[Rfam]
RNA sequence: CCCUGGGAGUAUCACACAAACUCAAGUAGCCAUUAGGUGAAAGAGGAUAUGUUGAAUAGGGAA
Numbered sequence: 001c002c003c004u005g006g007g008a009g010u011a012u013c014a015c016a017c018a019a020a021c022u023c024a025a026g027u028a029g030c031c032a033u034u035a036g037g038u039g040a041a042a043g044a045g046g047a048u049a050u051g052u053u054g055a056a057u058a059g060g061g062a063a
Base pairs, nucleotide, nucleotide: 001061002060003059004058005057009050010049011048012047013046021045022044023043029038030037031036
Description:
The family of this 63-nucleotide RNA sequence is "RAGATH-18 RNA". It is annotated as a small RNA. Pairs were carried over by alignment from the consensus structure, which is taken from published work.